[Rfam]
RNA sequence: CCGAUCGCCCCGUCGGGGAUCGGCAAAGUCCAAAGGGGGCGUCGGCUCUUUGGGCGCCCCUCGUAUCCAUGUUGCUCAAUGGAGGAUGUGGCUAUGAGAG
Numbered sequence: 001c002c003g004a005u006c007g008c009c010c011c012g013u014c015g016g017g018g019a020u021c022g023g024c025a026a027a028g029u030c031c032a033a034a035g036g037g038g039g040c041g042u043c044g045g046c047u048c049u050u051u052g053g054g055c056g057c058c059c060c061u062c063g064u065a066u067c068c069a070u071g072u073u074g075c076u077c078a079a080u081g082g083a084g085g086a087u088g089u090g091g092c093u094a095u096g097a098g099a100g
Stems, first nucleotide, its partner, number of pairs: 001023006008017002036059001038058006045051001060098006067091007075084003
This 100-nucleotide RNA sequence from Hypericibacter adhaerens belongs to the Rfam family "Repression of heat shock gene expression (ROSE) element". About the family: This family represents a 5' UTR cis-regulatory element found in heat shock mRNAs and is known as the ROSE (repression of heat shock gene expression) element. The ROSE element is a negative regulator of heat shock gene expression. Pairs were carried over by alignment from the consensus structure, which is taken from published work. The match comes from Rfam's covariance-model search (68 bits). Lineage of the source: Bacteria > Pseudomonadati > Rhodospirillales > Dongiaceae > Hypericibacter.